Record summary: The family of this 123-nucleotide RNA from Dendroctonus ponderosae is "U5 spliceosomal RNA". Rfam describes the family as follows. U5 RNA is a component of both types of known spliceosome. The precise function of this molecule is unknown, though it is known that the 5' loop is required for splice site selection and p220 binding, and that both the 3' stem-loop and the Sm site are important for Sm protein binding and cap methylation. It scores 94 bits against the family's covariance model. Rfam links the family to the GO terms spliceosomal tri-snRNP complex assembly and U5 snRNP.
[Rfam]
RNA sequence: UUACCCUGGACUCUCUUCAAAGCGAAUAAAUCUUUCGCCUUUUACUAAAGAUUUCCGUGGAGAGGGUCAAUAUAAAUGGGUCUUAAUGAAUUUUUCCAAGGCCUUAAACUUCGGUUUAGGGCC
Numbered sequence: 001u002u003a004c005c006c007u008g009g010a011c012u013c014u015c016u017u018c019a020a021a022g023c024g025a026a027u028a029a030a031u032c033u034u035u036c037g038c039c040u041u042u043u044a045c046u047a048a049a050g051a052u053u054u055c056c057g058u059g060g061a062g063a064g065g066g067u068c069a070a071u072a073u074a075a076a077u078g079g080g081u082c083u084u085a086a087u088g089a090a091u092u093u094u095u096c097c098a099a100g101g102c103c104u105u106a107a108a109c110u111u112c113g114g115u116u117u118a119g120g121g122c123c
Base pairs, nucleotide, nucleotide: 003081004080005079006078009068010067011066012065013064014063015062016061017060018059019058028054029053030052031051032050033049034048035047100123101122102121103120104119105118106117107116
Dot-bracket structure: ..((((..(((((((((((........((((((((...........))))))))...))))))))))).........))))..................((((((((........))))))))
It is annotated as a spliceosomal small nuclear RNA. NCBI's taxonomy places the organism under Eukaryota, Opisthokonta, Metazoa, Allotriocarida, Dendroctonus.